[Rfam]
This 75-nucleotide RNA from Myotis brandtii belongs to the Rfam family "mir-9223 microRNA precursor family". The family has 9 seed sequences and 14,641 matches in Rfam 15.1. Lineage of the source: Eukaryota > Opisthokonta > Chordata > Dipnotetrapodomorpha > Myotis.
RNA sequence: GGCGGUUCUUGGGUGAUACACCCGGGAAUCAGGCUCCCUCCUCUAUGGUUCCGGGUGUGUCACCCGAGAACUGUA
Numbered sequence: 001g002g003c004g005g006u007u008c009u010u011g012g013g014u015g016a017u018a019c020a021c022c023c024g025g026g027a028a029u030c031a032g033g034c035u036c037c038c039u040c041c042u043c044u045a046u047g048g049u050u051c052c053g054g055g056u057g058u059g060u061c062a063c064c065c066g067a068g069a070a071c072u073g074u075a
Stems, first nucleotide, its partner, number of pairs: 002074002005071013019057005025052007033044001
Pairs were carried over by alignment from the consensus structure, which was predicted with RNAalifold.